The record is a 121-nucleotide sequence from Elaeis guineensis, which matches "MIR398 microRNA precursor family" in Rfam. The family's consensus secondary structure was predicted with WAR. It scores 63 bits against the family's covariance model.
RNA sequence: GAAGUUCCAACAGGGGCGACCUGCGACCACACGAGCUGAAGUCCUUCAUCGAAACCUCGUCCCUCGAUUGCUGCAAUCGGACGGUGCCCGUGUGUUCUCAGGUCGCCCCUGCCGGGCCUUC
Numbered sequence: 001g002a003a004g005u006u007c008c009a010a011c012a013g014g015g016g017c018g019a020c021c022u023g024c025g026a027c028c029a030c031a032c033g034a035g036c037u038g039a040a041g042u043c044c045u046u047c048a049u050c051g052a053a054a055c056c057u058c059g060u061c062c063c064u065c066g067a068u069u070g071c072u073g074c075a076a077u078c079g080g081a082c083g084g085u086g087c088c089c090g091u092g093u094g095u096u097c098u099c100a101g102g103u104c105g106c107c108c109c110u111g112c113c114g115g116g117c118c119u120u121c
Stems, first nucleotide, its partner, number of pairs: 007115002011111004016106004023099001025097002028094005